[Rfam]
RNA sequence: AGUCAUAUGCUUGUCUCAAAGAUUAAGCCAUGCAUGUCUAAGUACAUACUUUUACAUAGUGAAACCGCGAAUGGCUCAUUAAAUCAGUUAUGGUUCCUUAGAUCGUACAAUCCUACUUGGAUAACUGUGGUAAUUCUAGAGCUAAUACAUGAAGCACGGCUCUGACCUCGCGGAAAGAGCGCGUUUAUUAGAUCAAAACCAGUCGGGUUCCGCAAGGGCCCGUCGGAUUGGUGAGACUGGAUAACUUUGUGCUGAUCGCACGGCCUCGCGCCGGCGACGUAUCUUUCAAAUGUCUGCCCUAUCAACUUUCGAUGGUACGUGAUAUGCCUACCAUGGUUGUAACGGGUAACGGGGAAUCAGGGUUCGAUUCCGGAGAGGGAGCAUGAGAAACGGCUACCACAUCCAAGGAAGGCAGCAGGCGCGCAAAUUACCCACUCCUGGCACGGGGAGGUAGUGACGAAAAAUAACAAUACGGGACUCUUUCGAGGCCCCGUAAUUGGAAUGAGUACACUUUAAACCCUUUAACGAGGAUCUAUUGGAGGGCAAGUCUGGUGCCAGCAGCCGCGGUAAUUCCAGCUCCAAUAGCGUAUAUUAAAGUUG
Number, nucleotide and partner (000 for none) at each position: 001a593002g592003u591004c000005a590006u589007a588008u587009g586010c585011u584012u000013g000014u462015c000016u460017c459018a000019a000020a455021g422022a000023u000024u000025a000026a000027g420028c419029c418030a000031u417032g416033c415034a000035u000036g068037u067038c000039u000040a000041a000042g065043u064044a000045c000046a000047u000048a060049c059050u000051u000052u000053u000054a000055c000056a000057u000058a000059g049060u048061g000062a000063a000064a043065c042066c000067g037068c036069g000070a000071a000072u000073g000074g000075c375076u374077c373078a000079u000080u000081a000082a000083a000084u000085c296086a295087g294088u000089u000090a291091u290092g000093g000094u289095u288096c000097c000098u000099u000100a284101g283102a282103u281104c000105g000106u000107a000108c000109a000110a000111u000112c000113c000114u000115a000116c151117u000118u149119g148120g000121a000122u000123a000124a000125c141126u140127g000128u138129g137130g136131u000132a000133a000134u000135u000136c130137u129138a128139g000140a126141g125142c000143u000144a000145a000146u000147a000148c119149a118150u000151g116152a000153a000154g000155c000156a000157c000158g000159g180160c179161u178162c177163u176164g000165a000166c173167c172168u000169c000170g000171c000172g167173g166174a000175a000176a163177g162178a161179g160180c159181g000182c000183g000184u000185u244186u243187a242188u241189u240190a000191g000192a000193u000194c000195a000196a000197a000198a232199c231200c230201a229202g000203u000204c000205g000206g000207g000208u000209u000210c000211c000212g000213c000214a000215a000216g221217g000218g000219c000220c000221c216222g000223u000224c000225g000226g000227a000228u000229u201230g200231g199232u198233g000234a000235g000236a000237c000238u000239g000240g189241a188242u187243a186244a185245c000246u000247u000248u000249g000250u000251g000252c000253u000254g000255a000256u277257c276258g275259c274260a000261c273262g272263g271264c270265c000266u000267c000268g000269c000270g264271c263272c262273g261274g259275c258276g257277a256278c000279g000280u000281a103282u102283c101284u100285u000286u000287c000288a095289a094290a091291u090292g000293u000294c087295u086296g085297c000298c346299c345300u344301a000302u000303c000304a000305a337306c336307u335308u000309u000310c000311g000312a334313u333314g332315g331316u330317a329318c000319g327320u000321g000322a000323u000324a000325u000326g000327c319328c000329u317330a316331c315332c314333a313334u312335g307336g306337u305338u000339g000340u000341a000342a000343c000344g300345g299346g298347u000348a000349a000350c372351g371352g370353g369354g365355a364356a363357u362358c000359a000360g000361g000362g357363u356364u355365c354366g000367a000368u000369u353370c352371c351372g350373g077374a076375g075376a000377g398378g397379g000380a395381g394382c393383a000384u000385g000386a000387g000388a000389a000390a000391c000392g000393g382394c381395u380396a000397c378398c377399a000400c411401a000402u409403c408404c000405a000406a000407g000408g403409a402410a000411g400412g000413c000414a000415g033416c032417a031418g029419g028420c027421g000422c021423g000424c000425a000426a000427a000428u453429u000430a452431c451432c450433c000434a000435c000436u448437c447438c446439u445440g444441g000442c000443a000444c440445g439446g438447g437448g436449a000450g432451g431452u430453a428454g000455u020456g000457a000458c000459g017460a016461a000462a014463a000464a000465u000466a000467a000468c499469a498470a497471u495472a494473c493474g492475g491476g490477a000478c487479u486480c485481u000482u000483u000484c000485g480486a479487g478488g000489c000490c476491c475492c474493g473494u472495a471496a000497u470498u469499g468500g000501a000502a000503u000504g000505a000506g526507u525508a523509c000510a522511c000512u000513u000514u000515a000516a000517a000518c000519c000520c000521u000522u510523u508524a000525a507526c506527g000528a000529g000530g000531a000532u000533c000534u000535a000536u582537u581538g580539g579540a578541g577542g000543g000544c000545a000546a000547g000548u000549c576550u575551g574552g573553u000554g000555c000556c000557a000558g565559c564560a000561g000562c000563c000564g559565c558566g000567g000568u000569a000570a000571u000572u000573c552574c551575a550576g549577c541578u540579c539580c538581a537582a536583u000584a011585g010586c009587g008588u007589a006590u005591a003592u002593u001594a000595a000596a000597g000598u000599u000600g000